[Rfam]
RNA sequence: AAAGCAUGCUAGAAGGACACUUUUUGGUCAACUGCUUGUAUCUUUCCCAAGCUUCAUAGAGGGAUUCACCAUCUUUUUGCUUGAAGGUCUGAACAUCCACUCUAACUUU
Numbered sequence: 001a002a003a004g005c006a007u008g009c010u011a012g013a014a015g016g017a018c019a020c021u022u023u024u025u026g027g028u029c030a031a032c033u034g035c036u037u038g039u040a041u042c043u044u045u046c047c048c049a050a051g052c053u054u055c056a057u058a059g060a061g062g063g064a065u066u067c068a069c070c071a072u073c074u075u076u077u078u079g080c081u082u083g084a085a086g087g088u089c090u091g092a093a094c095a096u097c098c099a100c101u102c103u104a105a106c107u108u109u
Base pairs, nucleotide, nucleotide: 001109003107004106006103059076060075062073
RNA: Plant small nucleolar RNA R71
Organism: Arachis hypogaea